Overview
This 125-nucleotide sequence from Lactuca sativa belongs to the Rfam family "Small nucleolar RNA snoR77". It scores 108 bits against the family's covariance model. It is annotated as an H/ACA-box small nucleolar RNA. Rfam links the family to the GO terms nucleolus and RNA processing.
RNA sequence: AGGCAACCACCUUUUGUUUAUCACUCAAAAGGUAGGUGUUGUUCUGUUCGUAAAUCAAUAUCUUUUGCUCUUCAGACUUGUUGAGUUUACUUCAAUGAAGCUGGUCUAGUAAGCAUAAGUACAUA
Numbered sequence: 001a002g003g004c005a006a007c008c009a010c011c012u013u014u015u016g017u018u019u020a021u022c023a024c025u026c027a028a029a030a031g032g033u034a035g036g037u038g039u040u041g042u043u044c045u046g047u048u049c050g051u052a053a054a055u056c057a058a059u060a061u062c063u064u065u066u067g068c069u070c071u072u073c074a075g076a077c078u079u080g081u082u083g084a085g086u087u088u089a090c091u092u093c094a095a096u097g098a099a100g101c102u103g104g105u106c107u108a109g110u111a112a113g114c115a116u117a118a119g120u121a122c123a124u125a
Stems, first nucleotide, its partner, number of pairs: 002040004007036002009033008062119003067114003074107005080101003085093001